[Rfam]
RNA sequence: GGGGGGAGGCCGGAUCCUGGGCUGUGUCCUGGCGCCCUGUGCUCCGGGGCCUGCGCUAUGGGAUUCGUGCUCCCGCGGCGCAGCUCCCU
Numbered sequence: 001g002g003g004g005g006g007a008g009g010c011c012g013g014a015u016c017c018u019g020g021g022c023u024g025u026g027u028c029c030u031g032g033c034g035c036c037c038u039g040u041g042c043u044c045c046g047g048g049g050c051c052u053g054c055g056c057u058a059u060g061g062g063a064u065u066c067g068u069g070c071u072c073c074c075g076c077g078g079c080g081c082a083g084c085u086c087c088c089u
Stems, first nucleotide, its partner, number of pairs: 001089006009081002011078001013076001016075001019073003023069004027063003030058006039051001041050003

Source information:
Rfam assigns this 89-nucleotide RNA from Nyctereutes procyonoides to the family "mir-8799 microRNA precursor family". The source organism's lineage runs through Eukaryota, Teleostomi, Tetrapoda, Boreoeutheria and Nyctereutes. The match comes from Rfam's covariance-model search (80 bits). The family's consensus secondary structure was predicted with RNAalifold.